[Rfam]
RNA sequence: CCGCAUACUGUAACUAAAGACUGAAAGCGUGGGUGACGAUAGCAUCGGAUCGUCUAAGGUCAAAAAUCGCGGUUAUAUACGGU
Numbered sequence: 001c002c003g004c005a006u007a008c009u010g011u012a013a014c015u016a017a018a019g020a021c022u023g024a025a026a027g028c029g030u031g032g033g034u035g036a037c038g039a040u041a042g043c044a045u046c047g048g049a050u051c052g053u054c055u056a057a058g059g060u061c062a063a064a065a066a067u068c069g070c071g072g073u074u075a076u077a078u079a080c081g082g083u
Stems, first nucleotide, its partner, number of pairs: 035054006
The record is an 83-nucleotide sequence, which matches "RAGATH-26 RNA" in Rfam. Rfam classes the family as a small RNA.